[Rfam]
RNA sequence: UUAUUUGAUUUCAUAGCCAUUUAUGGCUAUUGGCUGGUGGCAAAAAUGCCACCGGCCU
Number, nucleotide and partner (000 for none) at each position: 001u000002u000003a000004u000005u000006u000007g000008a000009u000010u000011u000012c000013a000014u029015a028016g027017c026018c025019a000020u000021u000022u000023a000024u000025g018026g017027c016028u015029a014030u000031u000032g057033g056034c055035u054036g053037g052038u051039g050040g049041c048042a000043a000044a000045a000046a000047u000048g041049c040050c039051a038052c037053c036054g035055g034056c033057c032058u000
About this RNA
Pseudomonas sRNA P26: a 58-nucleotide sequence from Photobacterium aquimaris. A search with the family's covariance model found it, with a score of 43 bits. This small RNA (sRNA) was computationally identified in the genome of the opportunistic pathogen Pseudomonas aeruginosa and its expression verified by northern blot analysis. P26 is conserved across many Gammaproteobacteria species and appears to be consistently located between the DNA directed RNA polymerase (beta subunit) and 50S ribosomal protein L7/L12 genes. The literature on the family includes a 2006 paper in Nucleic Acids Res by Livny et al., "Identification of 17 Pseudomonas aeruginosa sRNAs and prediction of sRNA-encoding genes in 10 diverse pathogens using the bioinformatic tool sRNAPredict2". It is annotated as a non-coding RNA gene. The source organism's lineage runs through Bacteria, Pseudomonadota, Vibrionales, Vibrionaceae and Photobacterium.